[Rfam]
RNA: let-7 microRNA precursor family
Organism: Armadillidium nasatum
RNA sequence: GCCCGAUGAGGUAGUAAGUUGUAUAGUUUAUAUCAACCAACUUAUGAACCUGAACAACUGUACAGCUUGCUAACUUUACGGGC
Number, nucleotide and partner (000 for none) at each position: 001g083002c082003c081004c080005g079006a000007u000008g076009a075010g074011g000012u072013a071014g070015u069016a068017a067018g066019u065020u064021g063022u062023a061024u060025a059026g058027u057028u000029u000030a000031u000032a000033u000034c000035a000036a000037c000038c000039a000040a000041c000042u000043u000044a000045u000046g000047a000048a000049c000050c000051u000052g000053a000054a000055c000056a000057a027058c026059u025060g024061u023062a022063c021064a020065g019066c018067u017068u016069g015070c014071u013072a012073a000074c010075u009076u008077u000078a000079c005080g004081g003082g002083c001